[Rfam]
RNA: Plastid-psbA-1 3UTR RNA
Organism: Musa balbisiana
RNA sequence: UCGAAUUUUCAUCUACAAAUGCUCAGAUUUUUGUCUUAGUGUAACGAACGUUGAACAAAUAGCAAUACCCCAUGUCUUGCUUUAGCAAGACUGGGAUUUGCUACUUU
Numbered sequence: 001u002c003g004a005a006u007u008u009u010c011a012u013c014u015a016c017a018a019a020u021g022c023u024c025a026g027a028u029u030u031u032u033g034u035c036u037u038a039g040u041g042u043a044a045c046g047a048a049c050g051u052u053g054a055a056c057a058a059a060u061a062g063c064a065a066u067a068c069c070c071c072a073u074g075u076c077u078u079g080c081u082u083u084a085g086c087a088a089g090a091c092u093g094g095g096a097u098u099u100g101c102u103a104c105u106u107u
Stems, first nucleotide, its partner, number of pairs: 010021003057106002060103006067097001070094003074091005